[Rfam]
RNA sequence: AGGGAAUUUCAGUAUUAGGCCAUAGCGGAAGUGGUUAUGGUUCAGCCAUGUCAGAUUCCAAUGGAUCUGUGAAUUCUGCU
Dot-bracket structure: ............[....[[[...((((((((.(.......).).]]]]...(((((((....)))))))....)))))))
Numbered sequence: 001a002g003g004g005a006a007u008u009u010c011a012g013u014a015u016u017a018g019g020c021c022a023u024a025g026c027g028g029a030a031g032u033g034g035u036u037a038u039g040g041u042u043c044a045g046c047c048a049u050g051u052c053a054g055a056u057u058c059c060a061a062u063g064g065a066u067c068u069g070u071g072a073a074u075u076c077u078g079c080u
Stems, first nucleotide, its partner, number of pairs: 013048001018047003024080007031043001033041001052069007
Description: Shown here is an 80-nucleotide RNA from Alligator mississippiensis, a member of the family "Mammalian CPEB3 ribozyme". The match comes from Rfam's covariance-model search (44 bits). Pairs were carried over by alignment from the consensus structure, which is taken from published work. Rfam's curators write: The mammalian CPEB3 ribozyme is a self cleaving RNA located in the second intron of the CPEB3 gene which belongs to a family of genes regulating messenger RNA polyadenylation.